[Rfam]
RNA sequence: GAGCAGUGAUGACAGAUGCGCUCUUGCAAUGGUUGGGUCCAUUGAUCUCUUUGAUCUGACGAUGAGAAAUUGCGCCCCUGAGCUC
Numbered sequence: 001g002a003g004c005a006g007u008g009a010u011g012a013c014a015g016a017u018g019c020g021c022u023c024u025u026g027c028a029a030u031g032g033u034u035g036g037g038u039c040c041a042u043u044g045a046u047c048u049c050u051u052u053g054a055u056c057u058g059a060c061g062a063u064g065a066g067a068a069a070u071u072g073c074g075c076c077c078c079u080g081a082g083c084u085c
Base pairs, nucleotide, nucleotide: 001085002084003083004082

This 85-nucleotide sequence from Gossypium armourianum belongs to the Rfam family "small nucleolar RNA snoR114". The family's consensus secondary structure was predicted with RNAalifold. Taxonomically the source falls in Gossypium (Eukaryota, Tracheophyta, Pentapetalae, Malvaceae). It is annotated as a C/D-box small nucleolar RNA.